Source information
mir-205 microRNA precursor family: a 74-nucleotide sequence from Platysteira castanea. The family's consensus secondary structure was predicted with RNAalifold. The match comes from Rfam's covariance-model search (62 bits). Rfam 15.1 lists 1,154 matches to the family in 646 species.
RNA sequence: UCCUGGUGCCCUUCAUUCCACCGGAAUCCGUCGGUGCCGAGCGCGGAUUUCGGUGGCAUGAAGCCCCUCAGGGA
Numbered sequence: 001u002c003c004u005g006g007u008g009c010c011c012u013u014c015a016u017u018c019c020a021c022c023g024g025a026a027u028c029c030g031u032c033g034g035u036g037c038c039g040a041g042c043g044c045g046g047a048u049u050u051c052g053g054u055g056g057c058a059u060g061a062a063g064c065c066c067c068u069c070a071g072g073g074a
Stems, first nucleotide, its partner, number of pairs: 011063006019055003023051004028046003